[Rfam]
RNA sequence: GGUCGAAGGUCCCAGCAGAGAGGUGAGGACUCUUUGGUAUUGAGAUCUCUCUAACAAAGAUUCAAUGCCUUCGUAUAUAUUAAUUUUGCCGAAUCGUAGGAUGCCCAAUAUUUUUUAACCAUUUUUGGACCAUCUUGAACCCUCGGCUACAAUUUU
Numbered sequence: 001g002g003u004c005g006a007a008g009g010u011c012c013c014a015g016c017a018g019a020g021a022g023g024u025g026a027g028g029a030c031u032c033u034u035u036g037g038u039a040u041u042g043a044g045a046u047c048u049c050u051c052u053a054a055c056a057a058a059g060a061u062u063c064a065a066u067g068c069c070u071u072c073g074u075a076u077a078u079a080u081u082a083a084u085u086u087u088g089c090c091g092a093a094u095c096g097u098a099g100g101a102u103g104c105c106c107a108a109u110a111u112u113u114u115u116u117a118a119c120c121a122u123u124u125u126u127g128g129a130c131c132a133u134c135u136u137g138a139a140c141c142c143u144c145g146g147c148u149a150c151a152a153u154u155u156u
Stems, first nucleotide, its partner, number of pairs: 004073006011020001013018001025051003032044003036040001088147005100134002103131001105128004110123001

The record is a 156-nucleotide RNA sequence from Cephalotus follicularis, which matches "Small nucleolar RNA snoR145" in Rfam.
Rfam links the family to the GO terms RNA processing and nucleolus.
Taxonomically the source falls in Cephalotus (Eukaryota, Embryophyta, Tracheophyta, fabids).
On this family, see Chen and Wu, Nucleic Acids Res 2009: "Mining small RNA sequencing data: a new approach to identify small nucleolar RNAs in Arabidopsis".
It scores 104 bits against the family's covariance model.